[Rfam]
RNA sequence: AAAACUUUUUCGAAAGAAAAAAUCUGUUCUUAUCAGUUUAAUAUCUGAUACGUCCCCCAUCCGGGGACUACAUAUUAAAUGGAUUUUUAGAUCACGGAGCUGGAGCCGGGGCUUGCUCCGUCCACUCCAUGCAUCGGCCUGGUAUUGCAGUGUCUCCAGGAACGGUGUGCUUUCC
Numbered sequence: 001a002a003a004a005c006u007u008u009u010u011c012g013a014a015a016g017a018a019a020a021a022a023u024c025u026g027u028u029c030u031u032a033u034c035a036g037u038u039u040a041a042u043a044u045c046u047g048a049u050a051c052g053u054c055c056c057c058c059a060u061c062c063g064g065g066g067a068c069u070a071c072a073u074a075u076u077a078a079a080u081g082g083a084u085u086u087u088u089a090g091a092u093c094a095c096g097g098a099g100c101u102g103g104a105g106c107c108g109g110g111g112c113u114u115g116c117u118c119c120g121u122c123c124a125c126u127c128c129a130u131g132c133a134u135c136g137g138c139c140u141g142g143u144a145u146u147g148c149a150g151u152g153u154c155u156c157c158a159g160g161a162a163c164g165g166u167g168u169g170c171u172u173u174c175c
Stems, first nucleotide, its partner, number of pairs: 031050006052068006096128004102122002108119004131168006138160005
The family of this 175-nucleotide RNA from Carassius auratus is "U2 spliceosomal RNA". Its family is annotated with U2 snRNP, mRNA branch site recognition and pre-mRNA branch point binding in the Gene Ontology. NCBI's taxonomy places the organism under Eukaryota, Craniata, Euteleostomi, Actinopteri, Carassius. Pairs were carried over by alignment from the consensus structure, which is taken from published work. U2 is a small nuclear RNA (snRNA) component of the spliceosome (involved in pre-mRNA splicing). Complementary binding between U2 snRNA (in an area lying towards the 5' end but 3' to hairpin I) and the branchpoint sequence (BPS) of the intron results the bulging out of an unpaired adenosine, on the BPS, which initiates a nucleophilic attack at the intronic 5' splice site, thus starting the first of two transesterification reactions that mediate splicing.